The family of this 538-nucleotide part of an RNA from Methanothrix soehngenii is "Archaeal large subunit ribosomal RNA".
The base pairs follow the family's consensus structure, which is taken from published work.
[Rfam]
RNA sequence: UGCUUAUGCCAGCCAGGGGAUGGCUCGGCUCAAGUGCUGAAGAAGGACGUGCCAAGCUGCGAUAAGCCUCGGCGAGGCGCAUGGAGCCAUUGAACCGAGGAUGUCCUAAUGGGAAAUCCUAAGUCUAAGACUUGAUCCUCAAGGAUCGGGAACGUCCCGGAUUGAAACAUCUUAGUAGGGACAGGAAGAGAAAUCAACCGAGAUACCGUCAGUAACGGCGAGUGAACGCGGUAGAGCCUAAACCGAAUCCUGCAAGGGAGAUGUGGUGUUAUAAGCUGGUCUAAACGUUUUAAUCUGGAAGUCGAAGUGGCCUGGAAUGGCCUGCCAUAGAGUGUGAGAGCCACGUAGUCGUAACAGAUCAAUACCGAGACCAUGACUUGAGUACCGUGCGUCGGAAAUCGCGCGGGAAUUUGGGGGUCACCAACCUCCAAGGCUAAAUACAACUUGAGACCGAUAGCGUAGUAGUAGUGUGAACGAAAGCUGAAAAGUACCCCAAAUAGGGAGGUGCAAAGAGCCUGAAAUUGGCUGGCGAUAGUGC
Numbered sequence: 001u002g003c004u005u006a007u008g009c010c011a012g013c014c015a016g017g018g019g020a021u022g023g024c025u026c027g028g029c030u031c032a033a034g035u036g037c038u039g040a041a042g043a044a045g046g047a048c049g050u051g052c053c054a055a056g057c058u059g060c061g062a063u064a065a066g067c068c069u070c071g072g073c074g075a076g077g078c079g080c081a082u083g084g085a086g087c088c089a090u091u092g093a094a095c096c097g098a099g100g101a102u103g104u105c106c107u108a109a110u111g112g113g114a115a116a117u118c119c120u121a122a123g124u125c126u127a128a129g130a131c132u133u134g135a136u137c138c139u140c141a142a143g144g145a146u147c148g149g150g151a152a153c154g155u156c157c158c159g160g161a162u163u164g165a166a167a168c169a170u171c172u173u174a175g176u177a178g179g180g181a182c183a184g185g186a187a188g189a190g191a192a193a194u195c196a197a198c199c200g201a202g203a204u205a206c207c208g209u210c211a212g213u214a215a216c217g218g219c220g221a222g223u224g225a226a227c228g229c230g231g232u233a234g235a236g237c238c239u240a241a242a243c244c245g246a247a248u249c250c251u252g253c254a255a256g257g258g259a260g261a262u263g264u265g266g267u268g269u270u271a272u273a274a275g276c277u278g279g280u281c282u283a284a285a286c287g288u289u290u291u292a293a294u295c296u297g298g299a300a301g302u303c304g305a306a307g308u309g310g311c312c313u314g315g316a317a318u319g320g321c322c323u324g325c326c327a328u329a330g331a332g333u334g335u336g337a338g339a340g341c342c343a344c345g346u347a348g349u350c351g352u353a354a355c356a357g358a359u360c361a362a363u364a365c366c367g368a369g370a371c372c373a374u375g376a377c378u379u380g381a382g383u384a385c386c387g388u389g390c391g392u393c394g395g396a397a398a399u400c401g402c403g404c405g406g407g408a409a410u411u412u413g414g415g416g417g418u419c420a421c422c423a424a425c426c427u428c429c430a431a432g433g434c435u436a437a438a439u440a441c442a443a444c445u446u447g448a449g450a451c452c453g454a455u456a457g458c459g460u461a462g463u464a465g466u467a468g469u470g471u472g473a474a475c476g477a478a479a480g481c482u483g484a485a486a487a488g489u490a491c492c493c494c495a496a497a498u499a500g501g502g503a504g505g506u507g508c509a510a511a512g513a514g515c516c517u518g519a520a521a522u523u524g525g526c527u528g529g530c531g532a533u534a535g536u537g538c
Stems, first nucleotide, its partner, number of pairs: 007531010022516001023481002027452002029449006035442002044107004048061003067100006076088003111120003135146004153184001154182005164171002194201002205232005215223002235435004243266003248259004277373004287365002290362001301350001303348001307323001309322004326330001332344003385406007413429005468475002
Background
The match comes from Rfam's covariance-model search (2872 bits). The organism belongs to Methanothrix soehngenii, within Archaea.